This 73-nucleotide RNA sequence from Buceros rhinoceros belongs to the Rfam family "Small nucleolar RNA SNORD123". The source organism's lineage runs through Eukaryota, Vertebrata, Sauria, Bucerotidae and Buceros rhinoceros. Pairs were carried over by alignment from the consensus structure, which was predicted with WAR. A search with the family's covariance model found it, with a score of 79 bits. Rfam 15.1 lists 518 matches to the family in 509 species.
RNA sequence: GGUGAAAAUGAUGAACUCCAGGGUACUGAUUCAUCCAUGUGAUCUGAAAAAGCCAUCCAUUUCCUGAUUCACC
Numbered sequence: 001g002g003u004g005a006a007a008a009u010g011a012u013g014a015a016c017u018c019c020a021g022g023g024u025a026c027u028g029a030u031u032c033a034u035c036c037a038u039g040u041g042a043u044c045u046g047a048a049a050a051a052g053c054c055a056u057c058c059a060u061u062u063c064c065u066g067a068u069u070c071a072c073c
Base pairs, nucleotide, nucleotide: 001073002072003071004070005069006068